About this RNA
Rfam assigns this 151-nucleotide sequence from Candidatus Enterococcus clewellii to the family "glmS glucosamine-6-phosphate activated ribozyme aptamer". Pairs were carried over by alignment from the consensus structure, which is taken from published work. Rfam describes the family as follows. This entry contains a glucosamine-6-phosphate activated ribozyme that is found in the mRNA for GlmS. GlmS is an enzyme that uses fructose-6-phosphate and glutamine to generate glucosamine-6-phosphate. The ribozyme catalyses self cleavage of the glmS mRNA that is thought to regulate GlmS activity. Taxonomically the source falls in Enterococcus (Bacteria, Bacillota, Bacilli, Lactobacillales).

RNA sequence: UUAGAAUGGAGAGCGCCAGAUCUGGCUUGAUAACCAGGUGACGAGGGAGAAGCUUAUCGAAUUAUCGGCGGGUGGCUUCAGGGACUGCACUCUACAGGACAGUACAAAGAAUGGCUGUGAAGUCAUAACAAAACACUGGCCAUGCAGAUAG
Numbered sequence: 001u002u003a004g005a006a007u008g009g010a011g012a013g014c015g016c017c018a019g020a021u022c023u024g025g026c027u028u029g030a031u032a033a034c035c036a037g038g039u040g041a042c043g044a045g046g047g048a049g050a051a052g053c054u055u056a057u058c059g060a061a062u063u064a065u066c067g068g069c070g071g072g073u074g075g076c077u078u079c080a081g082g083g084a085c086u087g088c089a090c091u092c093u094a095c096a097g098g099a100c101a102g103u104a105c106a107a108a109g110a111a112u113g114g115c116u117g118u119g120a121a122g123u124c125a126u127a128a129c130a131a132a133a134c135a136c137u138g139g140c141c142a143u144g145c146a147g148a149u150a151g
Stems, first nucleotide, its partner, number of pairs: 020039006027032001049079005057068004080093004097141002100138004111126006
Dot-bracket structure: ...................((((((.(....).)))))).........(((((...((((....))))......)))))((((......))))...((.((((.......((((((....))))))........)))).))..........